[Rfam]
RNA sequence: UGACUACCCAACUGCUCCCAACCAAGACCUUCGUAGGCAGUAUAAUACUUCGUCUUUCUAUCCAGUAGUGAGGGAUUACUGGAAAUAAAUAUCGCA
Number, nucleotide and partner (000 for none) at each position: 001u000002g000003a000004c000005u000006a000007c000008c000009c000010a000011a000012c040013u039014g038015c037016u036017c000018c000019c000020a000021a000022c000023c000024a056025a055026g054027a053028c052029c000030u000031u000032c000033g000034u000035a000036g016037g015038c014039a013040g012041u000042a000043u000044a000045a000046u000047a000048c000049u000050u000051c000052g028053u027054c026055u025056u024057u000058c000059u000060a000061u083062c082063c081064a080065g079066u078067a077068g000069u000070g000071a000072g000073g000074g000075a000076u000077u067078a066079c065080u064081g063082g062083a061084a000085a000086u000087a000088a000089a000090u000091a000092u000093c000094g000095c000096a000

Overview
The record is a 96-nucleotide sequence from Eurybiavirus PHM2, which matches "PhotoRC-II RNA" in Rfam. A search with the family's covariance model found it, with a score of 56 bits. The base pairs follow the family's consensus structure, which is taken from published work. Lineage of the source: Viruses > Duplodnaviria > Heunggongvirae > Uroviricota > Eurybiavirus PHM2.